[Rfam]
RNA: Small nucleolar RNA SNORD2
Organism: Ficedula albicollis
RNA sequence: AAGUGAUAUGAUGGUACACCAUCUUUCGGGACUGACCUGAAAUGGAGACAAGUCCUUAGUACUGAUCACUU
Numbered sequence: 001a002a003g004u005g006a007u008a009u010g011a012u013g014g015u016a017c018a019c020c021a022u023c024u025u026u027c028g029g030g031a032c033u034g035a036c037c038u039g040a041a042a043u044g045g046a047g048a049c050a051a052g053u054c055c056u057u058a059g060u061a062c063u064g065a066u067c068a069c070u071u
Stems, first nucleotide, its partner, number of pairs: 001071006